[Rfam]
RNA sequence: ACCCAGGGGUGAAAAGUUGUACAGCUCAUGGUUUUUUAGUAGGCAUAAGCGUAUAGCUUUUCCCCUUUGGUU
Dot-bracket structure: ..(((((.(.(.((..(((((...((.(((.............))).))..)))))..)).).).)))))..
RNA: mir-965 microRNA precursor family
Organism: Diabrotica balteata